[Rfam]
RNA sequence: UGCACUGUAUGGUAUCUGCACCCAGCGGCUCCUCCUGCUGGGCUGUUCAUUAAACAGUGCUACAAGAACUCGGCAUCUGGCAUCGUUGGUUUCCAUGCUGUCCUGUGCCUGGAAGCCUGGUAUUUCUGCUGAAACACUU
Numbered sequence: 001u002g003c004a005c006u007g008u009a010u011g012g013u014a015u016c017u018g019c020a021c022c023c024a025g026c027g028g029c030u031c032c033u034c035c036u037g038c039u040g041g042g043c044u045g046u047u048c049a050u051u052a053a054a055c056a057g058u059g060c061u062a063c064a065a066g067a068a069c070u071c072g073g074c075a076u077c078u079g080g081c082a083u084c085g086u087u088g089g090u091u092u093c094c095a096u097g098c099u100g101u102c103c104u105g106u107g108c109c110u111g112g113a114a115g116c117c118u119g120g121u122a123u124u125u126c127u128g129c130u131g132a133a134a135c136a137c138u139u
Stems, first nucleotide, its partner, number of pairs: 002060006015053001018046003022042002024039005063128002066125003070120004079109005
The record is a 139-nucleotide RNA from Acipenser ruthenus, which matches "Small nucleolar RNA SNORA8" in Rfam. The family's RNA type in Rfam is H/ACA-box small nucleolar RNA. Rfam links the family to the GO terms nucleolus and RNA processing. Rfam describes the family as follows. ACA8 is a member of the H/ACA class of snoRNA that guide the sites of modification of uridines to pseudouridines. The organism belongs to Acipenser, within Eukaryota.